[Rfam]
RNA sequence: GGAUGUUAAAUUGACUCUAGUAGGGAGUCCGUAUUAAUGCGUGACUCCCUAAUCGAGUCAGGUUGACUUCCUU
Numbered sequence: 001g002g003a004u005g006u007u008a009a010a011u012u013g014a015c016u017c018u019a020g021u022a023g024g025g026a027g028u029c030c031g032u033a034u035u036a037a038u039g040c041g042u043g044a045c046u047c048c049c050u051a052a053u054c055g056a057g058u059c060a061g062g063u064u065g066a067c068u069u070c071c072u073u
Stems, first nucleotide, its partner, number of pairs: 011061007021051009

Shown here is a 73-nucleotide RNA sequence from Trichoplusia ni, a member of the family "mir-929 microRNA precursor family". For this family Rfam cites "Computational and transcriptional evidence for microRNAs in the honey bee genome" (Weaver et al., Genome Biol, 2007). Rfam links the family to the GO terms miRNA-mediated post-transcriptional gene silencing and RISC complex. Lineage of the source: Eukaryota > Protostomia > Amphiesmenoptera > Noctuidae > Trichoplusia.